[Rfam]
RNA: FMN riboswitch aptamer (RFN element)
Organism: Nesterenkonia xinjiangensis
RNA sequence: CUUCGUGCUCCGGGGUCGGUGAAAGUCCGAACCGGCGGUGAAAGUCCGCGACCCGAGGCCGUUCGCGGCCACGGUUGAACCGGUGAAACUCCGGUACCGACAGUCAGAGUCUGGAUGGGAGAAGCACGAAG
Numbered sequence: 001c002u003u004c005g006u007g008c009u010c011c012g013g014g015g016u017c018g019g020u021g022a023a024a025g026u027c028c029g030a031a032c033c034g035g036c037g038g039u040g041a042a043a044g045u046c047c048g049c050g051a052c053c054c055g056a057g058g059c060c061g062u063u064c065g066c067g068g069c070c071a072c073g074g075u076u077g078a079a080c081c082g083g084u085g086a087a088a089c090u091c092c093g094g095u096a097c098c099g100a101c102a103g104u105c106a107g108a109g110u111c112u113g114g115a116u117g118g119g120a121g122a123a124g125c126a127c128g129a130a131g
Base pairs, nucleotide, nucleotide: 003129004128005127006126007125008124009123010121017029018028019027031110032109033099034098035049036048037047038046044097045096053074054073079095080094081093082092083091101113102112103111